A member of the RNA family "S15-Halobacteria ribosomal protein leader" from Halococcus hamelinensis, 63 nucleotides long. A reference for the family is Eckert and Weinberg (2020), "Discovery of 20 novel ribosomal leader candidates in bacteria and archaea", BMC Microbiol. Taxonomically the source falls in Halococcus hamelinensis (Archaea, Methanobacteriati, Methanobacteriota, Halococcus).

RNA sequence: AUGGGAACAGCACGGCCACGAAUCCGACUCGUCCGGCGGUGGACUCCGAGAUCGUGGUAGUGU
Numbered sequence: 001a002u003g004g005g006a007a008c009a010g011c012a013c014g015g016c017c018a019c020g021a022a023u024c025c026g027a028c029u030c031g032u033c034c035g036g037c038g039g040u041g042g043a044c045u046c047c048g049a050g051a052u053c054g055u056g057g058u059a060g061u062g063u
Stems, first nucleotide, its partner, number of pairs: 010063004015058007024050001031044005
The family's RNA type in Rfam is cis-regulatory leader.